[Rfam]
RNA sequence: UGAGUAGACCUAACAGCUGCGGGCGAAGCCCUGAAAGGGGUUCGUCCGAGGAAAGUCCGGGCUCCACAGGGCAGAAUAACGGCUAACGGCCGCCGGGGGCGACCCUAGGGAAAGUGCAACAGAGAUAUACCGCCGCUUUUGCGGUAAGGGUGGAAAGGCGAGGUAAGAGCUCACCAGCAUGCGGGGAACCGCAUGGCUCUGCAAACCCUAUUCGGAGCAACACCGUGGAGGGACAUGAUGCGUCGGCCCGGCGCGUCCCGGGGAGGUGGCAUCGAGCUGGCGCGGCGACGCCCAGCCAAGAUAGAUGGCUGUUCACGACAGAACCCGGCUUAUGGUCUGGUCACAUC
Numbered sequence: 001u002g003a004g005u006a007g008a009c010c011u012a013a014c015a016g017c018u019g020c021g022g023g024c025g026a027a028g029c030c031c032u033g034a035a036a037g038g039g040g041u042u043c044g045u046c047c048g049a050g051g052a053a054a055g056u057c058c059g060g061g062c063u064c065c066a067c068a069g070g071g072c073a074g075a076a077u078a079a080c081g082g083c084u085a086a087c088g089g090c091c092g093c094c095g096g097g098g099g100c101g102a103c104c105c106u107a108g109g110g111a112a113a114g115u116g117c118a119a120c121a122g123a124g125a126u127a128u129a130c131c132g133c134c135g136c137u138u139u140u141g142c143g144g145u146a147a148g149g150g151u152g153g154a155a156a157g158g159c160g161a162g163g164u165a166a167g168a169g170c171u172c173a174c175c176a177g178c179a180u181g182c183g184g185g186g187a188a189c190c191g192c193a194u195g196g197c198u199c200u201g202c203a204a205a206c207c208c209u210a211u212u213c214g215g216a217g218c219a220a221c222a223c224c225g226u227g228g229a230g231g232g233a234c235a236u237g238a239u240g241c242g243u244c245g246g247c248c249c250g251g252c253g254c255g256u257c258c259c260g261g262g263g264a265g266g267u268g269g270c271a272u273c274g275a276g277c278u279g280g281c282g283c284g285g286c287g288a289c290g291c292c293c294a295g296c297c298a299a300g301a302u303a304g305a306u307g308g309c310u311g312u313u314c315a316c317g318a319c320a321g322a323a324c325c326c327g328g329c330u331u332a333u334g335g336u337c338u339g340g341u342c343a344c345a346u347c
Base pairs, nucleotide, nucleotide: 001343002342003341005339006338007337008336009335010334012313013312014311015310016309017308018307020048021047022046023045024044025043026042027041053331054330055329057328058327059326060325061324062217063216064215065214069249070248071247072246074213075212076211077210078209080092081091082090083089094108095106096105097104098103109208110207114206115205116202117201118200130149131148132145133144134143135142136141157175158174160172161171162170177197178195179194180193181192182191183190184189221268222267223266224265231259232258234255240254241253242252243251244250276296277295278294279293280292282291283290284289
Bacterial RNase P class A: a 347-nucleotide RNA from Hydrogeniiclostridium mannosilyticum. By type it is a ribozyme. NCBI's taxonomy places the organism under Bacteria, Bacillati, Eubacteriales, Acutalibacteraceae, Hydrogeniiclostridium.